A member of the RNA family "Small nucleolar RNA U54" from Elaeis guineensis, 87 nucleotides long. By type it is a C/D-box small nucleolar RNA. About the family: U54 is a C/D box small nucleolar RNA, which acts as a methylation guide for 18S ribosomal RNA in plants. Taxonomically the source falls in Elaeis (Eukaryota, Streptophyta, Liliopsida, commelinids). The family has 21 seed sequences and 614 matches in Rfam 15.1. A search with the family's covariance model found it, with a score of 54 bits.
RNA sequence: AGCUUGAUGAUUACAGCCAAUUAUUUUUUGGCAAUAUAUGCUAUUCUGAGAAAGUUAAAAGGGCUAAACUUGGAAUGUAUGAGAGCU
Numbered sequence: 001a002g003c004u005u006g007a008u009g010a011u012u013a014c015a016g017c018c019a020a021u022u023a024u025u026u027u028u029u030g031g032c033a034a035u036a037u038a039u040g041c042u043a044u045u046c047u048g049a050g051a052a053a054g055u056u057a058a059a060a061g062g063g064c065u066a067a068a069c070u071u072g073g074a075a076u077g078u079a080u081g082a083g084a085g086c087u
Stems, first nucleotide, its partner, number of pairs: 001087005